This 174-nucleotide RNA from Bacteroides cellulosilyticus belongs to the Rfam family "Group II catalytic intron D1-D4-3".
It scores 149 bits against the family's covariance model.
Taxonomically the source falls in Bacteroides cellulosilyticus (Bacteria, Bacteroidia, Bacteroidales, Bacteroides).
RNA sequence: UUCAUAGCGAUGUGGAAUCUGAAGGAAGCUGGCGGCAAAUUCUCGGCCUUACGAACAGAAACUGAAUACAAGGCCGUGUAUGGAGGACAAGUCUGCAUGACAAGGCAAAGUCCUAUAACUAUCUGAAUCCAUACAUGGUAAAUGCAGAGGGCACAUGAGAUGAAAGCGUACGUU
Numbered sequence: 001u002u003c004a005u006a007g008c009g010a011u012g013u014g015g016a017a018u019c020u021g022a023a024g025g026a027a028g029c030u031g032g033c034g035g036c037a038a039a040u041u042c043u044c045g046g047c048c049u050u051a052c053g054a055a056c057a058g059a060a061a062c063u064g065a066a067u068a069c070a071a072g073g074c075c076g077u078g079u080a081u082g083g084a085g086g087a088c089a090a091g092u093c094u095g096c097a098u099g100a101c102a103a104g105g106c107a108a109a110g111u112c113c114u115a116u117a118a119c120u121a122u123c124u125g126a127a128u129c130c131a132u133a134c135a136u137g138g139u140a141a142a143u144g145c146a147g148a149g150g151g152c153a154c155a156u157g158a159g160a161u162g163a164a165a166g167c168g169u170a171c172g173u174u
Stems, first nucleotide, its partner, number of pairs: 001016006028174001030172002035167002041160005046152005062147003066143002073139003077135007085113004091106004
Overview
Group II introns are found in rRNA, tRNA and mRNA of organelles in fungi, plants and protists, and also in mRNA in bacteria.